[Rfam]
RNA sequence: CUUCGACGCACGGGGCGCCCGUCCGGCUGGCGGGCUGAGAGGCACCCGAUGAACCUGAUCCGGCUCGUACCGGCGGAGGGAUGCGAACAAUGGUCAGC
Numbered sequence: 001c002u003u004c005g006a007c008g009c010a011c012g013g014g015g016c017g018c019c020c021g022u023c024c025g026g027c028u029g030g031c032g033g034g035c036u037g038a039g040a041g042g043c044a045c046c047c048g049a050u051g052a053a054c055c056u057g058a059u060c061c062g063g064c065u066c067g068u069a070c071c072g073g074c075g076g077a078g079g080g081a082u083g084c085g086a087a088c089a090a091u092g093g094u095c096a097g098c
Stems, first nucleotide, its partner, number of pairs: 007085004011048004016042001017035007054079003060073004
RNA: TPP riboswitch aptamer (THI element)